[Rfam]
RNA sequence: UGAGAUGGAAUCAACGUUUAGCCAUGUGAUUUUACGCUGAAUCCAUCUCAUG
Dot-bracket structure: (((((((((.(((.((((((......)))....))).))).)))))))))..
RNA: MIR1886 microRNA precursor family
Organism: Solanum tuberosum